[Rfam]
FMN riboswitch aptamer (RFN element): a 115-nucleotide RNA sequence from Desulfosporosinus acididurans. Gene Ontology term of the family: FMN binding.
RNA sequence: ACUAUCCUCUGGGGUUGGGUGAAAUUCCCUAUCGGCGGUACAGCCCGCGAGCCUUUUUGGCAGAUCCGGUUUAAUUCCGGAGCCGACAGUAAAGUCUGGAUGAGAAGAGGAAUAG
Numbered sequence: 001a002c003u004a005u006c007c008u009c010u011g012g013g014g015u016u017g018g019g020u021g022a023a024a025u026u027c028c029c030u031a032u033c034g035g036c037g038g039u040a041c042a043g044c045c046c047g048c049g050a051g052c053c054u055u056u057u058u059g060g061c062a063g064a065u066c067c068g069g070u071u072u073a074a075u076u077c078c079g080g081a082g083c084c085g086a087c088a089g090u091a092a093a094g095u096c097u098g099g100a101u102g103a104g105a106a107g108a109g110g111a112a113u114a115g
Stems, first nucleotide, its partner, number of pairs: 005111006017029003031095002033085002035048004043083002051061003065081005087098003

The organism belongs to Desulfosporosinus, within Bacteria. Pairs were carried over by alignment from the consensus structure, which is taken from published work. The match comes from Rfam's covariance-model search (115 bits).